Annotation:
The family of this 80-nucleotide RNA sequence from Drosophila kikkawai is "mir-981 microRNA precursor family". Lineage of the source: Eukaryota > Protostomia > Panorpida > Drosophilinae > Sophophora. It scores 70 bits against the family's covariance model. A reference for the family is Stark et al. (2007), "Systematic discovery and characterization of fly microRNAs using 12 Drosophila genomes", Genome Res. The base pairs follow the family's consensus structure, which was predicted with RNAalifold.
[Rfam]
RNA sequence: CCUCACUGAAGUCGGGUUUCGUUAACAGCGGUCUAUAAUUUUAACAAGUUCGUUGUCGACGAAACCUGCAUGCUGUGUGG
Numbered sequence: 001c002c003u004c005a006c007u008g009a010a011g012u013c014g015g016g017u018u019u020c021g022u023u024a025a026c027a028g029c030g031g032u033c034u035a036u037a038a039u040u041u042u043a044a045c046a047a048g049u050u051c052g053u054u055g056u057c058g059a060c061g062a063a064a065c066c067u068g069c070a071u072g073c074u075g076u077g078u079g080g
Base pairs, nucleotide, nucleotide: 001080002079004077005076006075013068014067015066016065017064018063019062020061021060030051031050033048034047